[Rfam]
RNA sequence: CAAGCAAACUGCCUUAUCGCUACUUUCAGUAAUGAAAAUAGAGGAAAGUCUGGACACCAUAGGGAAGCAUAAUGGGUAACGCCCAUCCUUGGCUUGCCAAGAGGACAAGUGCAACAGAAAGUAUGUACAGGUAAUGCUGUAGUGAAACCAGGUAAACUCUAUGCGGUGAAAUGUCAUGUAUAUUUAGCGUUCGAGGGUGCCCGCCCGAUGCUUUAGGGGUAGGCAGAUAGAGCUAUCGAGUAAUUGAUAGCCGGGAUAAAUGAUAAGGGAGUACUUUUAGUACUUACAGAAUCCGGCUUAUAGGUUUGCUUAUUUU
Numbered sequence: 001c002a003a004g005c006a007a008a009c010u011g012c013c014u015u016a017u018c019g020c021u022a023c024u025u026u027c028a029g030u031a032a033u034g035a036a037a038a039u040a041g042a043g044g045a046a047a048g049u050c051u052g053g054a055c056a057c058c059a060u061a062g063g064g065a066a067g068c069a070u071a072a073u074g075g076g077u078a079a080c081g082c083c084c085a086u087c088c089u090u091g092g093c094u095u096g097c098c099a100a101g102a103g104g105a106c107a108a109g110u111g112c113a114a115c116a117g118a119a120a121g122u123a124u125g126u127a128c129a130g131g132u133a134a135u136g137c138u139g140u141a142g143u144g145a146a147a148c149c150a151g152g153u154a155a156a157c158u159c160u161a162u163g164c165g166g167u168g169a170a171a172u173g174u175c176a177u178g179u180a181u182a183u184u185u186a187g188c189g190u191u192c193g194a195g196g197g198u199g200c201c202c203g204c205c206c207g208a209u210g211c212u213u214u215a216g217g218g219g220u221a222g223g224c225a226g227a228u229a230g231a232g233c234u235a236u237c238g239a240g241u242a243a244u245u246g247a248u249a250g251c252c253g254g255g256a257u258a259a260a261u262g263a264u265a266a267g268g269g270a271g272u273a274c275u276u277u278u279a280g281u282a283c284u285u286a287c288a289g290a291a292u293c294c295g296g297c298u299u300a301u302a303g304g305u306u307u308g309c310u311u312a313u314u315u316u
Stems, first nucleotide, its partner, number of pairs: 002311009011301001012268007020041003024037005046299003050296005055168004062202003067164005072086005087103001088101004104159002109157002111153002126141005172225004183215001186212002195206003232251008
RNA: Bacterial RNase P class A